[Rfam]
Plastid-rps12 3UTR RNA: a 92-nucleotide RNA sequence. It is annotated as a cis-regulatory element. Plastid rpl20 is a non-coding RNA (ncRNA) recognised in plastids.
RNA sequence: UUUCAUUGCUGCAACCUCAAUUUUCAAUUUAAAACGAGAAAGAGUUUCCCAUUGGUAACAAAUGAUUAUCCUUUAAGCGGGGGAAAUCUUAU
Numbered sequence: 001u002u003u004c005a006u007u008g009c010u011g012c013a014a015c016c017u018c019a020a021u022u023u024u025c026a027a028u029u030u031a032a033a034a035c036g037a038g039a040a041a042g043a044g045u046u047u048c049c050c051a052u053u054g055g056u057a058a059c060a061a062a063u064g065a066u067u068a069u070c071c072u073u074u075a076a077g078c079g080g081g082g083g084a085a086a087u088c089u090u091a092u
Base pairs, nucleotide, nucleotide: 006020007019008018047082048081049080050079051073054070055069056068057067058066